Rfam assigns this 76-nucleotide RNA from Echinimonas agarilytica to the family "c-di-GMP-I-GGC riboswitch aptamer". Lineage of the source: Bacteria > Pseudomonadati > Gammaproteobacteria > Echinimonadaceae > Echinimonas. The match comes from Rfam's covariance-model search (62 bits). The family's consensus secondary structure is taken from published work. Clan: c-di-GMP_I riboswitch clan.
RNA sequence: GCUGACAAUGGCAAACCAGUCGCGAGAUUGGGACGCAAAACUUCCGGUCUCUAGAAAGAUAGCGGGGUUACCAGCG
Numbered sequence: 001g002c003u004g005a006c007a008a009u010g011g012c013a014a015a016c017c018a019g020u021c022g023c024g025a026g027a028u029u030g031g032g033a034c035g036c037a038a039a040a041c042u043u044c045c046g047g048u049c050u051c052u053a054g055a056a057a058g059a060u061a062g063c064g065g066g067g068u069u070a071c072c073a074g075c076g
Stems, first nucleotide, its partner, number of pairs: 003073002011036002016031006034062001039069004044065003047060003